RNA sequence: CACAGCUGGUGGCGCACCUCCUGACGACGGGCGGCGUGAUCGCGUUUUGCAUUCAGCAUACAGAUACCCGGCCCGCCAAUGAGCGGGCUUUUUAUU
Numbered sequence: 001c002a003c004a005g006c007u008g009g010u011g012g013c014g015c016a017c018c019u020c021c022u023g024a025c026g027a028c029g030g031g032c033g034g035c036g037u038g039a040u041c042g043c044g045u046u047u048u049g050c051a052u053u054c055a056g057c058a059u060a061c062a063g064a065u066a067c068c069c070g071g072c073c074c075g076c077c078a079a080u081g082a083g084c085g086g087g088c089u090u091u092u093u094a095u096u
Stems, first nucleotide, its partner, number of pairs: 009043004014037002017034002020031004070089007077081001
This 96-nucleotide sequence from Klebsiella aerogenes belongs to the Rfam family "Tryptophan operon leader". Rfam's curators write: At least 6 amino acid operons are known to be regulated by attenuation. The organism belongs to Klebsiella, within Bacteria. It is one of the family's seed sequences. Its family is annotated with tryptophan biosynthetic process and transcriptional attenuation by ribosome in the Gene Ontology.